[Rfam]
Background: The record is a 100-nucleotide sequence from Populus deltoides, which matches "MIR474 microRNA precursor family" in Rfam. The match comes from Rfam's covariance-model search (62 bits). Lineage of the source: Eukaryota > Magnoliopsida > eudicotyledons > Saliceae > Populus. For this family Rfam cites "Novel and mechanical stress-responsive MicroRNAs in Populus trichocarpa that are absent from Arabidopsis" (Lu et al., Plant Cell, 2005).

RNA sequence: CCCACCAAUCUUGGGUCAAGCUGGCCAACCAGACCCAAUGCAAUUGGGUCAGGCUAGGAAGCGAGACCCAACUGCCCAGCAAGAUCCAAUAGCGUUGGGU
Numbered sequence: 001c002c003c004a005c006c007a008a009u010c011u012u013g014g015g016u017c018a019a020g021c022u023g024g025c026c027a028a029c030c031a032g033a034c035c036c037a038a039u040g041c042a043a044u045u046g047g048g049u050c051a052g053g054c055u056a057g058g059a060a061g062c063g064a065g066a067c068c069c070a071a072c073u074g075c076c077c078a079g080c081a082a083g084a085u086c087c088a089a090u091a092g093c094g095u096u097g098g099g100u
Base pairs, nucleotide, nucleotide: 001099002098003097004096006094011089012088013087014086015085016084017083020080021079022078023077024076026074027073032050033049034048035047036046037045038044039043055070057068058067